[Rfam]
The family of this 200-nucleotide sequence from Cupriavidus sp. YR651 is "Manganese Mn2+ riboswitch aptamer (yybP-ykoY)". For this family Rfam cites "Mn(2+)-sensing mechanisms of yybP-ykoY orphan riboswitches" (Price et al., Mol Cell, 2015). From the family's description: This RNA was originally discovered in E. coli during a large scale screen and was named SraF. The family was later found to exist upstream of related families of protein genes in many bacteria, including the the yybP and ykoK genes in B. subtilis. The specific functions of these proteins are unknown, but this structured RNA element may be involved in their genetic regulation as a riboswitch. NCBI's taxonomy places the organism under Bacteria, Pseudomonadati, Pseudomonadota, Burkholderiaceae, Cupriavidus.
RNA sequence: CAAUUGCGGCUUCCAUUGGGGAGUAGCCGCCCUGAUCUCACCGCGCCGCGCAAUGCGGCAUCCGGGAGACAGGGGCGUACGUCAACAGACUUGACCGGAUACGGUUAUGGCGUACGUAGCUCCGGACCCUGGCAGCCUGCAAGGCCUGCCAUGUGUCCAGUGCCUGGCGAGACCGAUGACCUCACCUUUCUGGCCGGGCC
Number, nucleotide and partner (000 for none) at each position: 001c000002a000003a000004u000005u000006g000007c000008g000009g000010c000011u000012u000013c000014c000015a000016u000017u000018g000019g000020g000021g000022a000023g000024u000025a000026g000027c000028c000029g000030c000031c073032c072033u071034g000035a000036u000037c000038u000039c000040a000041c000042c000043g000044c000045g000046c000047c000048g000049c000050g000051c000052a000053a000054u000055g000056c000057g000058g000059c000060a000061u000062c000063c000064g000065g000066g000067a000068g000069a000070c000071a033072g032073g031074g000075g117076c116077g115078u114079a113080c112081g111082u110083c109084a108085a000086c000087a000088g000089a000090c000091u000092u107093g106094a105095c104096c103097g000098g000099a000100u000101a000102c000103g096104g095105u094106u093107a092108u084109g083110g082111c081112g080113u079114a078115c077116g076117u075118a000119g000120c000121u000122c000123c000124g000125g000126a000127c000128c000129c000130u000131g000132g000133c000134a000135g000136c000137c000138u000139g000140c000141a000142a000143g000144g000145c000146c000147u000148g000149c000150c000151a000152u000153g000154u000155g000156u000157c000158c000159a000160g000161u000162g000163c000164c000165u000166g000167g000168c000169g000170a000171g000172a000173c000174c000175g000176a000177u000178g000179a000180c000181c000182u000183c000184a000185c000186c000187u000188u000189u000190c000191u000192g000193g000194c000195c000196g000197g000198g000199c000200c000